[Rfam]
This 76-nucleotide RNA from Muraenolepis orangiensis belongs to the Rfam family "mir-196 microRNA precursor family".
It scores 56 bits against the family's covariance model.
Rfam links the family to the GO terms gene silencing by miRNA and RISC complex.

RNA sequence: CGAGCGGUAUAGGUAGUUUCAUGUUGUUGGGAUCGAUCUGGUUUACUCUGCAACACGGAACUGUCUCAACUGCCGC
Number, nucleotide and partner (000 for none) at each position: 001c000002g000003a000004g073005c072006g071007g070008u069009a000010u000011a066012g065013g064014u063015a062016g061017u060018u059019u058020c000021a000022u055023g054024u053025u052026g051027u050028u000029g048030g047031g046032a000033u000034c000035g000036a000037u000038c000039u000040g000041g000042u000043u000044u000045a000046c031047u030048c029049u000050g027051c026052a025053a024054c023055a022056c000057g000058g019059a018060a017061c016062u015063g014064u013065c012066u011067c000068a000069a008070c007071u006072g005073c004074c000075g000076c000